This 153-nucleotide RNA sequence from Antarctobacter heliothermus belongs to the Rfam family "Ruegeria cis2 sRNA". Gene Ontology term of the family: regulation of gene expression. The match comes from Rfam's covariance-model search (97 bits). For this family Rfam cites "Experimental Identification of Small Non-Coding RNAs in the Model Marine Bacterium Ruegeria pomeroyi DSS-3" (Rivers et al., Front Microbiol, 2016).
RNA sequence: GUCAGAAUUCCGGGGGUUGUAAUCUACAAAAGCGUACCCGCGCGACUGGUCGAUGGUAUGGAACAGGGGAUUCCAAUCGAACAUGGCCAGCAUGGAACUGGGCAGUGUAUUGGCAACGAACAUCUUGCCCGAGGCGAUCAUGUUGGCCCGUUG
Numbered sequence: 001g002u003c004a005g006a007a008u009u010c011c012g013g014g015g016g017u018u019g020u021a022a023u024c025u026a027c028a029a030a031a032g033c034g035u036a037c038c039c040g041c042g043c044g045a046c047u048g049g050u051c052g053a054u055g056g057u058a059u060g061g062a063a064c065a066g067g068g069g070a071u072u073c074c075a076a077u078c079g080a081a082c083a084u085g086g087c088c089a090g091c092a093u094g095g096a097a098c099u100g101g102g103c104a105g106u107g108u109a110u111u112g113g114c115a116a117c118g119a120a121c122a123u124c125u126u127g128c129c130c131g132a133g134g135c136g137a138u139c140a141u142g143u144u145g146g147c148c149c150g151u152u153g
Base pairs, nucleotide, nucleotide: 003034008030009029013025014024015023038056039055040054041052042051064153065152066151068149071081072080073079086147087146088145089144090143091142092141093140094139098134099133101130102129103127104126105125107123108122110119111118112117